[Rfam]
RNA sequence: GACAAACGUUUUACCGGUUUGUAAAUAGGAGCACACAAGCUCGCUAGUCGCCCCCUUCGUAUCGGGGAUCUAGAGAUUAAACGGUAUACCUGUCAUUUUAAAUUUCUACUUUUCGUACCAGUC
Number, nucleotide and partner (000 for none) at each position: 001g000002a022003c021004a020005a019006a018007c017008g000009u000010u000011u000012u000013a000014c000015c000016g000017g007018u006019u005020u004021g003022u002023a000024a000025a000026u000027a000028g000029g042030a041031g040032c039033a000034c000035a000036c000037a000038a000039g032040c031041u030042c029043g000044c073045u072046a071047g070048u000049c000050g000051c067052c066053c065054c064055c000056u000057u000058c000059g000060u000061a000062u000063c000064g054065g053066g052067g051068a000069u000070c047071u046072a045073g044074a000075g000076a000077u000078u000079a000080a000081a000082c000083g119084g118085u117086a116087u115088a000089c000090c000091u000092g000093u000094c000095a000096u000097u000098u000099u000100a000101a000102a000103u000104u000105u000106c000107u000108a000109c000110u000111u000112u000113u000114c000115g087116u086117a085118c084119c083120a000121g000122u000123c000

The family of this 123-nucleotide sequence from Dianthovirus trifolii is "5'UTR enhancer element". It is one of the family's seed sequences. Lineage of the source: Viruses > Riboviria > Orthornavirae > Tolivirales > Dianthovirus trifolii.